[Rfam]
RNA sequence: GAAGAACUGUAGGGACUACAGGGAUCGCCUAGGGGAUAGAAAAUGUACACCAUGUGUUGAACCAUUUAUUUCUAGGAAGUCACAUUGGGACAGUCCACUAAUUAUUAAUG
Numbered sequence: 001g002a003a004g005a006a007c008u009g010u011a012g013g014g015a016c017u018a019c020a021g022g023g024a025u026c027g028c029c030u031a032g033g034g035g036a037u038a039g040a041a042a043a044u045g046u047a048c049a050c051c052a053u054g055u056g057u058u059g060a061a062c063c064a065u066u067u068a069u070u071u072c073u074a075g076g077a078a079g080u081c082a083c084a085u086u087g088g089g090a091c092a093g094u095c096c097a098c099u100a101a102u103u104a105u106u107a108a109u110g
Stems, first nucleotide, its partner, number of pairs: 007021006023081003028076007036069005047057004086097004